[Rfam]
RNA sequence: ACAGCCGCUGCGGGAGAGCACUCGCCGGGAAAACGCGGGUCGCCGAAGGAGCAACUUCUCCCUCAGAAUCUCUCAGGCCCAGUACCGCAACGGUCAG
Numbered sequence: 001a002c003a004g005c006c007g008c009u010g011c012g013g014g015a016g017a018g019c020a021c022u023c024g025c026c027g028g029g030a031a032a033a034c035g036c037g038g039g040u041c042g043c044c045g046a047a048g049g050a051g052c053a054a055c056u057u058c059u060c061c062c063u064c065a066g067a068a069u070c071u072c073u074c075a076g077g078c079c080c081a082g083u084a085c086c087g088c089a090a091c092g093g094u095c096a097g
Stems, first nucleotide, its partner, number of pairs: 006092002009089005020040006042078003045074002049072003055066002
Source information
This 97-nucleotide sequence from Actinoplanes siamensis belongs to the Rfam family "Glycine riboswitch aptamer". The match comes from Rfam's covariance-model search (58 bits). Taxonomically the source falls in Actinoplanes (Bacteria, Bacillati, Actinomycetota, Micromonosporales).